[Rfam]
RNA sequence: UGUUCGUCCCCUCGCGAUGAUGGGUUGGGAACCCCGCCAGGUCCGGAAGGAAGCAACGGUACCUUCUGAUUCAUGCGCCGAGGAUCGGCGGAUAGGG
Numbered sequence: 001u002g003u004u005c006g007u008c009c010c011c012u013c014g015c016g017a018u019g020a021u022g023g024g025u026u027g028g029g030a031a032c033c034c035c036g037c038c039a040g041g042u043c044c045g046g047a048a049g050g051a052a053g054c055a056a057c058g059g060u061a062c063c064u065u066c067u068g069a070u071u072c073a074u075g076c077g078c079c080g081a082g083g084a085u086c087g088g089c090g091g092a093u094a095g096g097g
Base pairs, nucleotide, nucleotide: 004091005090006089007088008087010083011082012081013080014079015075017074018073019072020071023067024066027063028062034059035058036057042051043050044049
Bacterial small signal recognition particle RNA: a 97-nucleotide sequence from Hydrogenovibrio marinus.
From the family's description: The signal recognition particle (SRP) is a universally conserved ribonucleoprotein involved in the co-translational targeting of proteins to membranes.
By type it is a non-coding RNA gene.
The family's consensus secondary structure is taken from published work.
Its Rfam clan is "SRP clan".